The family of this 129-nucleotide sequence from Microcebus murinus is "Small nucleolar RNA SNORA25".
Nucleotides: 129
Base pairs, nucleotide, nucleotide: 002059003058004057005056006055007054014047015046016045017044018043019042021040023039027036072122073121074120075119076118079115081113082112087107088106089105090104092103093102094101095100
Number, partner (000 for none) and nucleotide at each position: 001000a002059g003058g004057u005056c006055a007054u008000u009000u010000c011000g012000a013000a014047g015046g016045g017044a018043g019042c020000a021040u022000g023039u024000g025000g026000g027036g028000c029000u030000g031000u032000g033000a034000a035000a036027c037000g038000c039023a040021g041000a042019g043018c044017u045016c046015c047014u048000a049000a050000c051000a052000c053000c054007a055006u056005g057004a058003c059002c060000a061000g062000a063000u064000a065000u066000u067000g068000a069000u070000g071000u072122u073121c074120u075119c076118u077000a078000u079115a080000a081113g082112g083000c084000a085000c086000c087107a088106u089105a090104g091000u092103c093102a094101c095100u096000c097000a098000a099000u100095a101094g102093u103092g104090c105089u106088g107087u108000g109000u110000u111000u112082u113081c114000c115079u116000g117000a118076g119075g120074a121073g122072g123000u124000a125000u126000a127000a128000g129000a

Rfam's curators write: ACA25 is a member of the H/ACA class of snoRNA that guide the sites of modification of uridines to pseudouridines. The match comes from Rfam's covariance-model search (109 bits).